RNA sequence: GGUUUAAAGGGUGCGUAGGCGGCCCGUUAAGUCAGCGGUGAAAUCCCGGGGCUCAACCCCGGAACUGCCGUUGAUACUGGCGGGCUUGAGUUCGGUGAAGGCGGGCGGAACUGGCGGUGUAGCGGUGAAAUGCUUAGAUACCGCCAAGAACCCCGAUUGCGUAGGCAGCUCGCUGUGCCGAAACUGACGCUGAGGCACGAAAGCGUGGGGAGCGAACAGGAUUAGAUACCCUGGUAGUCCACGCCGUAAACGAUGAUGACUCGAUGUUGGCGAUACACUGUCAGCGUCCAAGCGAAAGCGUUAAGUCAUCCACCUGGGGAGUACGCCCGCAAGGGUGAAACUCAAAGGAAU
Numbered sequence: 001g002g003u004u005u006a007a008a009g010g011g012u013g014c015g016u017a018g019g020c021g022g023c024c025c026g027u028u029a030a031g032u033c034a035g036c037g038g039u040g041a042a043a044u045c046c047c048g049g050g051g052c053u054c055a056a057c058c059c060c061g062g063a064a065c066u067g068c069c070g071u072u073g074a075u076a077c078u079g080g081c082g083g084g085c086u087u088g089a090g091u092u093c094g095g096u097g098a099a100g101g102c103g104g105g106c107g108g109a110a111c112u113g114g115c116g117g118u119g120u121a122g123c124g125g126u127g128a129a130a131u132g133c134u135u136a137g138a139u140a141c142c143g144c145c146a147a148g149a150a151c152c153c154c155g156a157u158u159g160c161g162u163a164g165g166c167a168g169c170u171c172g173c174u175g176u177g178c179c180g181a182a183a184c185u186g187a188c189g190c191u192g193a194g195g196c197a198c199g200a201a202a203g204c205g206u207g208g209g210g211a212g213c214g215a216a217c218a219g220g221a222u223u224a225g226a227u228a229c230c231c232u233g234g235u236a237g238u239c240c241a242c243g244c245c246g247u248a249a250a251c252g253a254u255g256a257u258g259a260c261u262c263g264a265u266g267u268u269g270g271c272g273a274u275a276c277a278c279u280g281u282c283a284g285c286g287u288c289c290a291a292g293c294g295a296a297a298g299c300g301u302u303a304a305g306u307c308a309u310c311c312a313c314c315u316g317g318g319g320a321g322u323a324c325g326c327c328c329g330c331a332a333g334g335g336u337g338a339a340a341c342u343c344a345a346a347g348g349a350a351u
Base pairs, nucleotide, nucleotide: 001314002313003312009311011198012197013196014195016192018191019190020189022085023084024083025082026081027080028079030078031077032074033073034072035071036070037069038068039067040066046062047061048060049059050058051057089185090184091183092181093180094179095178096177097176100174101173102172103171104170105169106168107151112146113145114144115143116142117141118140122133123132124131159166160165203244204243205242206241207240208239212238213237217233218232219231220230255310256309257308258307259306260305263288264287265286266285267284268283269282270281271280272279292299293298316343317342318341325336326335327334328333
RNA: Bacterial small subunit ribosomal RNA, nucleotides 558 to 908
Organism: uncultured bacterium zdt-44a23